The record is a 141-nucleotide sequence from Agromyces archimandritae, which matches "FMN riboswitch aptamer (RFN element)" in Rfam.
The RFN element is a highly conserved domain that is found frequently in the 5'-untranslated regions of prokaryotic mRNAs that encode for flavin mononucleotide (FMN) biosynthesis and transport proteins. This element is a metabolite-dependent riboswitch that directly binds FMN in the absence of proteins.
Rfam links the family to the GO term FMN binding.
It scores 95 bits against the family's covariance model.
Pairs were carried over by alignment from the consensus structure, which is taken from published work.

[Rfam]
RNA sequence: AUACGUGCUCCGGGGUCGGUGUAAUUCCGAACCGGCGGUAACAGUCCGCGAGCCGCGAGCCGGGUGAGAACCCGCGCGAACGGUUGAUCCGGUGGAACUCCGGAACCGACGGUGAAAGUCCGGAUGGGAGGCGGCACGUCU
Numbered sequence: 001a002u003a004c005g006u007g008c009u010c011c012g013g014g015g016u017c018g019g020u021g022u023a024a025u026u027c028c029g030a031a032c033c034g035g036c037g038g039u040a041a042c043a044g045u046c047c048g049c050g051a052g053c054c055g056c057g058a059g060c061c062g063g064g065u066g067a068g069a070a071c072c073c074g075c076g077c078g079a080a081c082g083g084u085u086g087a088u089c090c091g092g093u094g095g096a097a098c099u100c101c102g103g104a105a106c107c108g109a110c111g112g113u114g115a116a117a118g119u120c121c122g123g124a125u126g127g128g129a130g131g132c133g134g135c136a137c138g139u140c141u
Base pairs, nucleotide, nucleotide: 003139004138005137006136007135008134009131010130017029018028019027031119032118033108034107035049036048037047038046044106045105052084053083054082088104089103090102091101092100110122111121112120